[Rfam]
RNA sequence: AUUGCAUGUGAGUCCCUCAUUUGGCAGGUUUAGCUGCUUUUAAUACGAUAUUGCUAGCUGCCUUGUGAAGGGCUUACGUGUGAU
Numbered sequence: 001a002u003u004g005c006a007u008g009u010g011a012g013u014c015c016c017u018c019a020u021u022u023g024g025c026a027g028g029u030u031u032a033g034c035u036g037c038u039u040u041u042a043a044u045a046c047g048a049u050a051u052u053g054c055u056a057g058c059u060g061c062c063u064u065g066u067g068a069a070g071g072g073c074u075u076a077c078g079u080g081u082g083a084u
Base pairs, nucleotide, nucleotide: 004081005080006079007078008077009076010075011074012073013072014071015070017068018067019066020065023062024061030057031056032055033054034053
A member of the RNA family "mir-980 microRNA precursor family" from Drosophila virilis, 84 nucleotides long. The source organism's lineage runs through Eukaryota, Neoptera, Ephydroidea, Drosophilini and Drosophila.